[Rfam]
RNA sequence: AAUAUUAAGGCUGUCAGACCAAAGACAGCAGGUGCGCCCGGGGAUCGGGCGCUGAAACGGAGGUUUCCGGCCUGCCGAGGAAAGAUUGGCGUUUGAUUUUCGGCAUUUUUGUGCCCCUUAUCCAGCGUUUUAUGCCUUUCCGCGGCCUUUCCCCGGAAAGGCAUUUUUUAUUCUAUAC
Numbered sequence: 001a002a003u004a005u006u007a008a009g010g011c012u013g014u015c016a017g018a019c020c021a022a023a024g025a026c027a028g029c030a031g032g033u034g035c036g037c038c039c040g041g042g043g044a045u046c047g048g049g050c051g052c053u054g055a056a057a058c059g060g061a062g063g064u065u066u067c068c069g070g071c072c073u074g075c076c077g078a079g080g081a082a083a084g085a086u087u088g089g090c091g092u093u094u095g096a097u098u099u100u101c102g103g104c105a106u107u108u109u110u111g112u113g114c115c116c117c118u119u120a121u122c123c124a125g126c127g128u129u130u131u132a133u134g135c136c137u138u139u140c141c142g143c144g145g146c147c148u149u150u151c152c153c154c155g156g157a158a159a160g161g162c163a164u165u166u167u168u169u170a171u172u173c174u175a176u177a178c
Stems, first nucleotide, its partner, number of pairs: 028075006034052008133163010

Rfam assigns this 178-nucleotide RNA sequence from Hungateiclostridiaceae bacterium KB18 to the family "Ribosomal protein L10 leader".
A search with the family's covariance model found it, with a score of 52 bits.
Lineage of the source: Bacteria > Bacillati > Bacillota > Eubacteriales > Oscillospiraceae.
From the family's description: This family is a putative r-protein leader autoregulatory structure found in B. subtilis and other low-GC Gram-positive bacteria. It is located in the 5' untranslated regions of mRNAs encoding ribosomal proteins L10 and L12 (rplJ-rplL). A Rho-independent transcription terminator structure that is probably involved in regulation is included at the 3' end.